[Rfam]
Nucleotides: 140
Stems, first nucleotide, its partner, number of pairs: 011122004018031003032117006042055002056102003064077004080096004
Number, partner (000 for none) and nucleotide at each position: 001000c002000g003000g004000u005000g006000g007000u008000c009000a010000c011122c012121g013120c014119c015000g016000a017000a018031u019030c020029g021000c022000c023000c024000u025000c026000g027000g028000g029020c030019g031018a032117a033116c034115c035114g036113g037112g038000g039000a040000c041000c042055c043054a044000c045000c046000g047000a048000u049000c050000c051000c052000c053000u054043u055042g056102g057101g058100g059000c060000g061000a062000a063000u064077c065076c066075g067074c068000g069000u070000c071000c072000g073000c074067g075066c076065g077064g078000u079000a080096g081095g082094g083093c084000g085000a086000c087000c088000u089000c090000u091000a092000g093083g094082c095081c096080c097000g098000a099000g100058c101057c102056c103000g104000u105000c106000a107000g108000c109000u110000a111000a112037c113036c114035c115034g116033g117032u118000a119014g120013g121012c122011g123000g124000u125000c126000g127000g128000c129000u130000a131000g132000a133000g134000a135000g136000g137000c138000g139000a140000a
The record is a 140-nucleotide RNA from Actinorhabdospora filicis, which matches "c-di-AMP riboswitch aptamer (ydaO/yuaA leader)" in Rfam. The source organism's lineage runs through Bacteria, Bacillati, Actinomycetes, Micromonosporales and Actinorhabdospora. The base pairs follow the family's consensus structure.